[Rfam]
RNA sequence: UGGAUGUGGAUUCCAGAAACCACAAAAAAUAAAUGGGGCGAAUUUCAGAAAAGCCAGAUGAGUACGAACAUUU
Numbered sequence: 001u002g003g004a005u006g007u008g009g010a011u012u013c014c015a016g017a018a019a020c021c022a023c024a025a026a027a028a029a030u031a032a033a034u035g036g037g038g039c040g041a042a043u044u045u046c047a048g049a050a051a052a053g054c055c056a057g058a059u060g061a062g063u064a065c066g067a068a069c070a071u072u073u
Stems, first nucleotide, its partner, number of pairs: 006023004037055003044067002

The record is a 73-nucleotide RNA sequence from Corythaeola cristata, which matches "DUF805 RNA" in Rfam. Clan: DUF805 clan. The source organism's lineage runs through Eukaryota, Opisthokonta, Bilateria, Chordata and Corythaeola. Rfam classes the family as a cis-regulatory element. The base pairs follow the family's consensus structure, which is taken from published work. A search with the family's covariance model found it, with a score of 57 bits.